[Rfam]
RNA: Archaeal RNase P
Organism: Halorhabdus sp. CBA1104
RNA sequence: GGCAGCGGGAGGCCGGUCCCCGUGCCCGAGACGCCCGGUCCGAUCGUGACCGAAUGUGGCCAACGGGCAUGAGGAAAGUCCCCCCACCGUCCGGGCAGGCGACCGGGUGCAAACCCGGGGCGGGAGACCGUCGGCACUGGAACAGCAACGAGACCCCUCGUCACGACCGAUGAGGUGUGCGAACCCCGAGCGAGAAAGGUCGUCGGAUCGAUCGCCGUAAGGCGGCCGCUCCGCGGGCGACAAAGCGACGGGGAGUGAACCCACCGAGGGUACUCGUGUCGGCACCGCCGACACGCUGACGGACGAGAACGGAUGGAACGGCGAAUCCUCGCCGGUGCAAGUCCGUGCGACUGGUAGUCCGGACACGGCACGGACGCACAGCCGAAUGCCGGCUCGAACAGAAGGGGGCUCACUCCCCGCAGCC
Numbered sequence: 001g002g003c004a005g006c007g008g009g010a011g012g013c014c015g016g017u018c019c020c021c022g023u024g025c026c027c028g029a030g031a032c033g034c035c036c037g038g039u040c041c042g043a044u045c046g047u048g049a050c051c052g053a054a055u056g057u058g059g060c061c062a063a064c065g066g067g068c069a070u071g072a073g074g075a076a077a078g079u080c081c082c083c084c085c086a087c088c089g090u091c092c093g094g095g096c097a098g099g100c101g102a103c104c105g106g107g108u109g110c111a112a113a114c115c116c117g118g119g120g121c122g123g124g125a126g127a128c129c130g131u132c133g134g135c136a137c138u139g140g141a142a143c144a145g146c147a148a149c150g151a152g153a154c155c156c157c158u159c160g161u162c163a164c165g166a167c168c169g170a171u172g173a174g175g176u177g178u179g180c181g182a183a184c185c186c187c188g189a190g191c192g193a194g195a196a197a198g199g200u201c202g203u204c205g206g207a208u209c210g211a212u213c214g215c216c217g218u219a220a221g222g223c224g225g226c227c228g229c230u231c232c233g234c235g236g237g238c239g240a241c242a243a244a245g246c247g248a249c250g251g252g253g254a255g256u257g258a259a260c261c262c263a264c265c266g267a268g269g270g271u272a273c274u275c276g277u278g279u280c281g282g283c284a285c286c287g288c289c290g291a292c293a294c295g296c297u298g299a300c301g302g303a304c305g306a307g308a309a310c311g312g313a314u315g316g317a318a319c320g321g322c323g324a325a326u327c328c329u330c331g332c333c334g335g336u337g338c339a340a341g342u343c344c345g346u347g348c349g350a351c352u353g354g355u356a357g358u359c360c361g362g363a364c365a366c367g368g369c370a371c372g373g374a375c376g377c378a379c380a381g382c383c384g385a386a387u388g389c390c391g392g393c394u395c396g397a398a399c400a401g402a403a404g405g406g407g408g409c410u411c412a413c414u415c416c417c418c419g420c421a422g423c424c
Stems, first nucleotide, its partner, number of pairs: 001424003005420005010414002012393006021071008077410002080408005085337004090363006098333005103118005119132005133328002138324001140322001154312002157307006341375008